[Rfam]
This 212-nucleotide RNA from Theileria orientalis belongs to the Rfam family "Nuclear RNase P". On this family, see Frank and Pace, Annu Rev Biochem 1998: "Ribonuclease P: unity and diversity in a tRNA processing ribozyme". The family's consensus secondary structure is taken from published work. The source organism's lineage runs through Eukaryota, Alveolata, Aconoidasida, Theileria and Theileria orientalis. The family has 116 seed sequences and 3,848 matches in Rfam 15.1. It scores 75 bits against the family's covariance model.
RNA sequence: AAAGCGUGUUAGCUUGGAAUUCUCUGUAUUCGCUCGAUCACUAAGCAGAGGGGAAGGUCUGAGGCGCCAGCUGGGACUGCAAAGUCGUCUGCGGAAACGCACAAAACGUCCACCAGAAAACAGCAUCGCUUGAAAGCGACGUUAUGGCCAUAUACUUAAGCUCAAUUUCCAAGGCCUCACGGUAACUCAAUUCAGACUACUCAACACACUUU
Numbered sequence: 001a002a003a004g005c006g007u008g009u010u011a012g013c014u015u016g017g018a019a020u021u022c023u024c025u026g027u028a029u030u031c032g033c034u035c036g037a038u039c040a041c042u043a044a045g046c047a048g049a050g051g052g053g054a055a056g057g058u059c060u061g062a063g064g065c066g067c068c069a070g071c072u073g074g075g076a077c078u079g080c081a082a083a084g085u086c087g088u089c090u091g092c093g094g095a096a097a098c099g100c101a102c103a104a105a106a107c108g109u110c111c112a113c114c115a116g117a118a119a120a121c122a123g124c125a126u127c128g129c130u131u132g133a134a135a136g137c138g139a140c141g142u143u144a145u146g147g148c149c150a151u152a153u154a155c156u157u158a159a160g161c162u163c164a165a166u167u168u169c170c171a172a173g174g175c176c177u178c179a180c181g182g183u184a185a186c187u188c189a190a191u192u193c194a195g196a197c198u199a200c201u202c203a204a205c206a207c208a209c210u211u212u
Stems, first nucleotide, its partner, number of pairs: 001212004008205003013173007022050005059195005066148003075086004088103001090101004105143006123129002174183003
Dot-bracket structure: ((((...(((..(((((((..(((((...................)))))........[[[[[..(((......((((....)))).(.((((....)))).).((((((............((...))........))))))..)))..................)))))))(((....))).......]]]]].......)))...))))